[Rfam]
RNA sequence: UAGUAGAUGCACCCUGAUAAUUUUUUACCCCAGCCAGCAAUGGCCGGGUUUUUUGU
Numbered sequence: 001u002a003g004u005a006g007a008u009g010c011a012c013c014c015u016g017a018u019a020a021u022u023u024u025u026u027a028c029c030c031c032a033g034c035c036a037g038c039a040a041u042g043g044c045c046g047g048g049u050u051u052u053u054u055g056u
Stems, first nucleotide, its partner, number of pairs: 003012002027049002030047002033044004